This 91-nucleotide sequence from Gossypium mustelinum belongs to the Rfam family "mir-395 microRNA precursor family".
About the family: mir-395 was identified in both Arabidopsis thaliana and Oryza sativa computationally and was later experimentally verified. mir-395 is thought to target mRNAs coding for ATP sulphurylases. The mature sequence is excised from the 3' arm of the hairpin.
A reference for the family is Jones-Rhoades and Bartel (2004), "Computational Identification of Plant MicroRNAs and Their Targets, Including a Stress-Induced miRNA", Mol Cell.
RNA sequence: AUGCCCACUAGAGUUCCCUCCGGCACUUCAGUUUAUUUGUCAAAACUUCUUUGCUGUUUACUGAAGUGUUUGGGGGAACUCCGGUUGCCAU
Numbered sequence: 001a002u003g004c005c006c007a008c009u010a011g012a013g014u015u016c017c018c019u020c021c022g023g024c025a026c027u028u029c030a031g032u033u034u035a036u037u038u039g040u041c042a043a044a045a046c047u048u049c050u051u052u053g054c055u056g057u058u059u060a061c062u063g064a065a066g067u068g069u070u071u072g073g074g075g076g077a078a079c080u081c082c083g084g085u086u087g088c089c090a091u
Base pairs, nucleotide, nucleotide: 005087007085008084009083011081012080013079014078015077016076017075018074019073020072022071023070024068025067026066027065028064029063030062031061032060035057
Dot-bracket structure: ....(.(((.((((((((((.(((((((((((..(.....................)..))))))))).)))))))))))).))).)....
The organism belongs to Gossypium, within Eukaryota.
A search with the family's covariance model found it, with a score of 61 bits.